[Rfam]
RNA sequence: UCAAUGGCGAAGAUGGAAAAAAGUACAGGAAAGCGGCCGGUACAGAGAACCUGCGGUUGGUGCAAGCAGGGGCGGAAGCUUCCCGGAAAUACAUUCCUGAGCCGUCGGGCUGAGAAAGCGGCAGAUUGCCGGAUUUAGGCUCGUCCGGGGUACGCCCGUUAGCGCGUUUGGGUAAUUUUUUACCCGUGAGGCCGCCGCCGUGAGGCUGCGGUAAACUGAGGUGGUACCGCGGAAUUUCCGCCCUCUGC
Numbered sequence: 001u002c003a004a005u006g007g008c009g010a011a012g013a014u015g016g017a018a019a020a021a022a023g024u025a026c027a028g029g030a031a032a033g034c035g036g037c038c039g040g041u042a043c044a045g046a047g048a049a050c051c052u053g054c055g056g057u058u059g060g061u062g063c064a065a066g067c068a069g070g071g072g073c074g075g076a077a078g079c080u081u082c083c084c085g086g087a088a089a090u091a092c093a094u095u096c097c098u099g100a101g102c103c104g105u106c107g108g109g110c111u112g113a114g115a116a117a118g119c120g121g122c123a124g125a126u127u128g129c130c131g132g133a134u135u136u137a138g139g140c141u142c143g144u145c146c147g148g149g150g151u152a153c154g155c156c157c158g159u160u161a162g163c164g165c166g167u168u169u170g171g172g173u174a175a176u177u178u179u180u181u182a183c184c185c186g187u188g189a190g191g192c193c194g195c196c197g198c199c200g201u202g203a204g205g206c207u208g209c210g211g212u213a214a215a216c217u218g219a220g221g222u223g224g225u226a227c228c229g230c231g232g233a234a235u236u237u238c239c240g241c242c243c244u245c246u247g248c
Base pairs, nucleotide, nucleotide: 007102008101015097016096017095018094026085028083029082030081031080038074039073050070051069052068053067054066106143107142108141109140110139111138146158147157148156191212192211193210194209195208197206218245219244220243221242229241230240231239232238233237
Rfam assigns this 248-nucleotide RNA from Clostridium sp. MSTE9 to the family "T-box leader". Rfam's curators write: Uncharged tRNA acts as the effector for transcription antitermination of genes in the T-box leader family. T-boxes are found upstream of many aminoacyl-tRNA synthetase genes and some amino acid biosynthetic genes usually in Gram-positive bacteria. On this family, see Grundy et al., J Bacteriol 1994: "Interaction between the acceptor end of tRNA and the T box stimulates antitermination in the Bacillus subtilis tyrS gene: a new role for the discriminator base". The family's consensus secondary structure is taken from published work.